Notes:
c-di-AMP riboswitch aptamer (ydaO/yuaA leader): a 137-nucleotide sequence from Tumebacillus flagellatus. Its family is annotated with regulation of gene expression and cyclic-di-AMP binding in the Gene Ontology. It scores 85 bits against the family's covariance model. This family represents a conserved RNA structure found upstream of the ydaO and yuaA genes in Bacillus subtilis and related genes in other bacteria. The ydaO/yuaA element is thought to act as a genetic 'off' switch for the ydaO and yuaA genes in its native state. It is believed that the element may be triggered during osmotic shock leading to activation of ydaO, a predicted amino acid transporter gene, and members of the yuaA-yubG operon which code for KtrA and KtrB K+ transporters. The organism belongs to Tumebacillus, within Bacteria.

RNA sequence: UGUCGAAAUUGGCCGAAUCUGGUACGAAAACCAGUACGGGGGACUUUUUUCCAAUGGGGUGAAGCCGCGCUGUUUGCGGCAGGGUUACUCUCGACCCGAACCCGUCAACUAACCUCGGAGGCCGCCAGGGAGGAACU
Dot-bracket structure: ..........((((....(((((......)))))..(((((....(.........)(((.....((((.......))))..((((........))))...))).........)))))..))))..............